[Rfam]
RNA sequence: AUCCCGGUGAUGAGGAAAGGACCUCAAGAUAGGAAGUGCCGUAUGACACUUACACAGCAGCUUCUCCACUACCACCAUAUCUUCUCUAACAUCUCUUAUUGUUUUCAAUUAUCAAAGUUCCUAAAAUAUUUGGAAUGCUGAUAGUUGAACAUUGGCAAUGGAGGAUUGGAGUUUAUGGCAUGGCUGGUGUGGUCAGCUGUGUGCUUGAUUUUAAAUGGGUCUCUGAGGGUU
Numbered sequence: 001a002u003c004c005c006g007g008u009g010a011u012g013a014g015g016a017a018a019g020g021a022c023c024u025c026a027a028g029a030u031a032g033g034a035a036g037u038g039c040c041g042u043a044u045g046a047c048a049c050u051u052a053c054a055c056a057g058c059a060g061c062u063u064c065u066c067c068a069c070u071a072c073c074a075c076c077a078u079a080u081c082u083u084c085u086c087u088a089a090c091a092u093c094u095c096u097u098a099u100u101g102u103u104u105u106c107a108a109u110u111a112u113c114a115a116a117g118u119u120c121c122u123a124a125a126a127u128a129u130u131u132g133g134a135a136u137g138c139u140g141a142u143a144g145u146u147g148a149a150c151a152u153u154g155g156c157a158a159u160g161g162a163g164g165a166u167u168g169g170a171g172u173u174u175a176u177g178g179c180a181u182g183g184c185u186g187g188u189g190u191g192g193u194c195a196g197c198u199g200u201g202u203g204c205u206u207g208a209u210u211u212u213a214a215a216u217g218g219g220u221c222u223c224u225g226a227g228g229g230u231u
Stems, first nucleotide, its partner, number of pairs: 001231001003229003075183004080178002083175001085170004092164005098159006
RNA: Small nucleolar RNA Z112
Organism: Dioscorea zingiberensis